[Rfam]
RNA sequence: GGCGAGCGGCGCCGAGUACACUCUGGGCUACCUUCGGGGCGCAGCUACAAAGAUGGUUUCCCUUAGGAUGGCAACCUAUCCUUACUUUGUAGUGGGAUCGCAGAGACGGGGGCUCGCCGCCAA
Numbered sequence: 001g002g003c004g005a006g007c008g009g010c011g012c013c014g015a016g017u018a019c020a021c022u023c024u025g026g027g028c029u030a031c032c033u034u035c036g037g038g039g040c041g042c043a044g045c046u047a048c049a050a051a052g053a054u055g056g057u058u059u060c061c062c063u064u065a066g067g068a069u070g071g072c073a074a075c076c077u078a079u080c081c082u083u084a085c086u087u088u089g090u091a092g093u094g095g096g097a098u099c100g101c102a103g104a105g106a107c108g109g110g111g112g113c114u115c116g117c118c119g120c121c122a123a
Stems, first nucleotide, its partner, number of pairs: 001118007010110001012109003021105005027042002031038002045092008
RNA: DUF3800-VII RNA
Organism: Acetobacter orientalis